[Rfam]
RNA sequence: UGGGCAGUAUCUUACAAGAACUGCACCUUAUCUUUAUUUUUCAUUAAGCAUAUUUCUGCCUAGAUCCAAUAAGGACCGGGACAGAGGG
Numbered sequence: 001u002g003g004g005c006a007g008u009a010u011c012u013u014a015c016a017a018g019a020a021c022u023g024c025a026c027c028u029u030a031u032c033u034u035u036a037u038u039u040u041u042c043a044u045u046a047a048g049c050a051u052a053u054u055u056c057u058g059c060c061u062a063g064a065u066c067c068a069a070u071a072a073g074g075a076c077c078g079g080g081a082c083a084g085a086g087g088g
Stems, first nucleotide, its partner, number of pairs: 002027002004024005010019002056084003059080003063076001065075003
Dot-bracket structure: .(((((((.((......))))))).))............................((((((.(.(((.....)))).))).)))....
RNA: pan motif